[Rfam]
RNA: Small nucleolar RNA SNORD74
Organism: Coregonus sp. 'balchen'
RNA sequence: CCCAUGCUCACAUGAUGAAUUAAGUGUUGGUAGGGACAUCUGAGUUACAUUGAGGAAACGCCAACCGUUCUGACUGUAUGGG
Numbered sequence: 001c002c003c004a005u006g007c008u009c010a011c012a013u014g015a016u017g018a019a020u021u022a023a024g025u026g027u028u029g030g031u032a033g034g035g036a037c038a039u040c041u042g043a044g045u046u047a048c049a050u051u052g053a054g055g056a057a058a059c060g061c062c063a064a065c066c067g068u069u070c071u072g073a074c075u076g077u078a079u080g081g082g
Base pairs, nucleotide, nucleotide: 001082002081003080004079005078